Annotation: The record is a 441-nucleotide sequence from Taxus chinensis, which matches "Group I catalytic intron" in Rfam. Rfam describes the family as follows. Group I catalytic introns are large self-splicing ribozymes.

RNA sequence: CUACAGACUUAAUAUAAUUGAGCCUUGGUAUGGACAAUUACUAAGUGAUAGCUUCCAAAUAUAGGGGAACCCUAGAAUAUUUUGAAUGGGAAAUCCUUAGCCAAAUCCAUAUUAUAGGAACAAAAGUUUUCUUUUCUAGAAAAGGGAUAGGUGUAGAGACUCAACAAAAGCUAUUCUAACGACUUAAUAUCAUUUGAAUUUGUACCAAUAUUCUAUCUAUAGAGUUUAGUAUGUUAUUGAAAACUUUUAAAGAGUUAUGUAUCAGGGUUAAAACUUGUUUGAACGAUUAGAACUUGAGUUGUUCUAGGAUUUCCUAGCUUAAUGAAUUCUCAUUUAAAGUAAUUCAAUUAAUAAAUAAAUUCUCAAUAAAUAGAAUUUAUUCCAUUUUUGAAUUAUUGGAUGAGGAUAAAGAUAGAGUCCAAUUCUACAUGUUAGUGCCAA
Number, nucleotide and partner (000 for none) at each position: 001c000002u000003a000004c000005a025006g024007a000008c022009u021010u020011a019012a018013u017014a000015u000016a000017a013018u012019u011020g010021a009022g008023c000024c006025u005026u000027g000028g000029u000030a038031u000032g000033g000034a000035c000036a000037a000038u030039u000040a000041c000042u000043a000044a000045g000046u000047g000048a000049u000050a172051g171052c170053u169054u168055c000056c000057a000058a000059a000060u099061a098062u000063a097064g096065g095066g094067g000068a000069a000070c090071c089072c088073u000074a000075g000076a000077a000078u000079a000080u000081u000082u000083u000084g000085a000086a000087u000088g072089g071090g070091a000092a000093a000094u066095c065096c064097u063098u061099a060100g152101c151102c000103a000104a000105a000106u146107c145108c144109a000110u000111a000112u000113u140114a000115u138116a137117g136118g135119a134120a133121c000122a000123a000124a000125a000126g000127u000128u000129u000130u000131c000132u000133u120134u119135u118136c117137u116138a115139g000140a113141a000142a000143a000144g108145g107146g106147a000148u000149a000150g000151g101152u100153g000154u000155a000156g420157a000158g419159a418160c417161u416162c415163a000164a000165c000166a000167a000168a054169a053170g052171c051172u050173a000174u406175u405176c404177u403178a000179a401180c000181g000182a000183c000184u000185u000186a000187a000188u000189a000190u000191c000192a000193u000194u000195u000196g000197a000198a000199u000200u000201u000202g000203u000204a000205c000206c000207a000208a000209u000210a000211u000212u000213c000214u000215a000216u000217c000218u000219a000220u000221a000222g000223a000224g000225u000226u000227u000228a000229g000230u000231a000232u000233g000234u000235u000236a000237u000238u000239g000240a000241a000242a000243a000244c000245u000246u000247u000248u000249a000250a000251a000252g000253a000254g000255u000256u000257a000258u000259g000260u000261a000262u000263c000264a000265g000266g000267g000268u000269u000270a000271a000272a000273a000274c000275u000276u000277g000278u000279u000280u000281g000282a000283a000284c000285g000286a000287u000288u000289a000290g000291a000292a000293c000294u000295u000296g000297a000298g000299u000300u000301g000302u000303u000304c000305u000306a000307g000308g000309a000310u000311u000312u000313c000314c000315u000316a000317g000318c000319u000320u000321a000322a000323u000324g000325a000326a000327u000328u000329c000330u000331c000332a000333u000334u000335u000336a000337a000338a000339g000340u000341a000342a000343u000344u000345c000346a000347a000348u000349u000350a000351a000352u000353a000354a000355a000356u000357a000358a000359a000360u000361u000362c000363u000364c000365a000366a000367u000368a000369a000370a000371u000372a000373g000374a000375a000376u000377u000378u000379a000380u000381u000382c000383c000384a000385u000386u000387u000388u000389u000390g000391a000392a000393u000394u000395a000396u000397u000398g000399g000400a000401u179402g000403a177404g176405g175406a174407u000408a000409a000410a000411g000412a000413u000414a000415g162416a161417g160418u159419c158420c156421a000422a000423u000424u000425c000426u000427a000428c437429a436430u435431g000432u000433u000434a000435g430436u429437g428438c000439c000440a000441a000
Background: The match comes from Rfam's covariance-model search (76 bits).